[Rfam]
RNA sequence: GGGAGCGGCAUUCCCUCCCCAACGAGGCCAUAUCCGGCGCAUGCGCCCAAACAUUCGCGCCGGUAUAGCUUGACCCGUCCGGUUGUCCCCCCGGGCGGGUC
Numbered sequence: 001g002g003g004a005g006c007g008g009c010a011u012u013c014c015c016u017c018c019c020c021a022a023c024g025a026g027g028c029c030a031u032a033u034c035c036g037g038c039g040c041a042u043g044c045g046c047c048c049a050a051a052c053a054u055u056c057g058c059g060c061c062g063g064u065a066u067a068g069c070u071u072g073a074c075c076c077g078u079c080c081g082g083u084u085g086u087c088c089c090c091c092c093g094g095g096c097g098g099g100u101c
Base pairs, nucleotide, nucleotide: 001019002018003017004016005015024071025070027069028068030066031065032064033063036061037060038059039058040057072101073100074099075098076097077096078095079094080093081092082091
Background:
The family of this 101-nucleotide RNA from Tardiphaga robiniae is "Rhizobiales-2 RNA". The source organism's lineage runs through Bacteria, Pseudomonadati, Pseudomonadota, Nitrobacteraceae and Tardiphaga.